[Rfam]
RNA: ffh sRNA
Organism: Pelagibacterales bacterium SAG-MED32
Nucleotides: 052
Stems, first nucleotide, its partner, number of pairs: 016044007025035004
Number, partner (000 for none) and nucleotide at each position: 001000u002000a003000a004000u005000u006000u007000a008000g009000g010000u011000g012000u013000c014000g015000a016044c017043a018042u019041c020040a021039g022038u023000c024000a025035g026034c027033g028032a029000g030000u031000u032028u033027c034026g035025c036000c037000c038022a039021c040020u041019g042018a043017u044016g045000c046000g047000u048000u049000a050000c051000c052000u